[Rfam]
RNA sequence: ACUUGGAUAAGGCACUCUAUUUUGUGGAUUCUGCCAAAAUAAGAACCUUAUCCAUGAAG
Number, nucleotide and partner (000 for none) at each position: 001a000002c056003u000004u054005g053006g052007a051008u050009a049010a048011g047012g046013c000014a000015c000016u000017c000018u041019a040020u039021u038022u037023u036024g035025u000026g034027g000028a000029u000030u000031c000032u000033g000034c026035c024036a023037a022038a021039a020040u019041a018042a000043g000044a000045a000046c012047c011048u010049u009050a008051u007052c006053c005054a004055u000056g002057a000058a000059g000
RNA: mir-7386 microRNA precursor family